[Rfam]
RNA sequence: UUACUUAUAACGAAAGGGAUGAUGGGUGAACGAUGAAGAACUAAUCUUAUUUUUCCAAAAUUUGAAUGAAAUACAUUUCAAAUGGAACAAAAAAUAGGAUUAGUCUGCCCAUUUCCAUAAAUCGCUUUUUCAAAGCAUAUCUCUAAUGGUAUGUGCACAAUGAGUGGUCGAUAUGCACGCUUUUUGUAUAUCGGUUAUGUAUGUUGUGAAUGAGCAAAUAAUUAGGUACGGCUAAUCCUUCCAGAGAAAAUUUGGGAGGAUUUUUUU
Numbered sequence: 001u002u003a004c005u006u007a008u009a010a011c012g013a014a015a016g017g018g019a020u021g022a023u024g025g026g027u028g029a030a031c032g033a034u035g036a037a038g039a040a041c042u043a044a045u046c047u048u049a050u051u052u053u054u055c056c057a058a059a060a061u062u063u064g065a066a067u068g069a070a071a072u073a074c075a076u077u078u079c080a081a082a083u084g085g086a087a088c089a090a091a092a093a094a095u096a097g098g099a100u101u102a103g104u105c106u107g108c109c110c111a112u113u114u115c116c117a118u119a120a121a122u123c124g125c126u127u128u129u130u131c132a133a134a135g136c137a138u139a140u141c142u143c144u145a146a147u148g149g150u151a152u153g154u155g156c157a158c159a160a161u162g163a164g165u166g167g168u169c170g171a172u173a174u175g176c177a178c179g180c181u182u183u184u185u186g187u188a189u190a191u192c193g194g195u196u197a198u199g200u201a202u203g204u205u206g207u208g209a210a211u212g213a214g215c216a217a218a219u220a221a222u223u224a225g226g227u228a229c230g231g232c233u234a235a236u237c238c239u240u241c242c243a244g245a246g247a248a249a250a251u252u253u254g255g256g257a258g259g260a261u262u263u264u265u266u267u
Stems, first nucleotide, its partner, number of pairs: 016116003023111004030104002042102013060083005065077004123214001125212001131206003135202001234262010245252001
Rfam assigns this 267-nucleotide sequence from Niallia circulans to the family "Bacillus sRNA ncr1575".
For this family Rfam cites "Identification of regulatory RNAs in Bacillus subtilis" (Irnov et al., Nucleic Acids Res, 2010).
It is annotated as a small RNA.
Pairs were carried over by alignment from the consensus structure, which is taken from published work.